[Rfam]
RNA: mir-iab-4 microRNA precursor family
Organism: Chionoecetes opilio
RNA sequence: CUCCUGCUACGUAUACUGAAGGUAUACCGGACUAGCUCCACCUCAGGAUACAUUCAGUAUACGUCCAGGGG
Numbered sequence: 001c002u003c004c005u006g007c008u009a010c011g012u013a014u015a016c017u018g019a020a021g022g023u024a025u026a027c028c029g030g031a032c033u034a035g036c037u038c039c040a041c042c043u044c045a046g047g048a049u050a051c052a053u054u055c056a057g058u059a060u061a062c063g064u065c066c067a068g069g070g071g
Base pairs, nucleotide, nucleotide: 002070003069004068005067006066009064010063011062012061013060014059015058016057017056018055019054020053022051023050024049025048027047028046030044031043035039